[Rfam]
RNA sequence: CUUGGGGUGCGCAGUCUACGCACGCCAGGCCGUCUGUGAGGUUGCCAUCCGUACCGGCACGGGGUGGCACAGACGAAAGGA
Numbered sequence: 001c002u003u004g005g006g007g008u009g010c011g012c013a014g015u016c017u018a019c020g021c022a023c024g025c026c027a028g029g030c031c032g033u034c035u036g037u038g039a040g041g042u043u044g045c046c047a048u049c050c051g052u053a054c055c056g057g058c059a060c061g062g063g064g065u066g067g068c069a070c071a072g073a074c075g076a077a078a079g080g081a
Base pairs, nucleotide, nucleotide: 001029002028003027004026005025007023008022009021010020011019032074033073034072035071036070037069044068045067046066047065048064049063050062
RNA: aspS RNA